[Rfam]
U1A polyadenylation inhibition element (PIE): a 75-nucleotide RNA sequence from Sus scrofa. The literature on the family includes a 2000 paper in Nat Struct Biol by Varani et al., "The NMR structure of the 38 kDa U1A protein - PIE RNA complex reveals the basis of cooperativity in regulation of polyadenylation by human U1A protein". The family's RNA type in Rfam is cis-regulatory element. Its family is annotated with regulation of mRNA polyadenylation in the Gene Ontology. The base pairs follow the family's consensus structure, which is taken from published work. NCBI's taxonomy places the organism under Eukaryota, Metazoa, Chordata, Tetrapoda, Sus.

Nucleotides: 075
Base pairs, nucleotide, nucleotide: 005052006051008049018045019044020043022035023034024033025032026031
Number, partner (000 for none) and nucleotide at each position: 001000c002000c003000a004000c005052a006051u007000a008049g009000c010000a011000u012000u013000g014000u015000a016000c017000a018045c019044a020043g021000a022035g023034u024033c025032u026031g027000u028000c029000c030000c031026c032025a033024g034023a035022c036000c037000u038000u039000g040000c041000a042000u043020c044019u045018g046000g047000c048000a049008c050000c051006a052005u053000u054000u055000a056000g057000g058000c059000u060000g061000g062000a063000a064000u065000u066000a067000a068000g069000g070000u071000g072000g073000u074000u075000u